RNA sequence: CUGCAACCUCGUUCAAGUAAUCCAGGAUAGGCUUUGUGGAUCUACUUCAGCCUAUCCUUGAUUACUUGCACUUGGCAGCAG
Numbered sequence: 001c002u003g004c005a006a007c008c009u010c011g012u013u014c015a016a017g018u019a020a021u022c023c024a025g026g027a028u029a030g031g032c033u034u035u036g037u038g039g040a041u042c043u044a045c046u047u048c049a050g051c052c053u054a055u056c057c058u059u060g061a062u063u064a065c066u067u068g069c070a071c072u073u074g075g076c077a078g079c080a081g
Stems, first nucleotide, its partner, number of pairs: 002080003007075002011071002014068009024058010
Dot-bracket structure: .(((..((..((.(((((((((.((((((((((...............)))))))))).))))))))).))..))..))).
RNA: mir-26 microRNA precursor family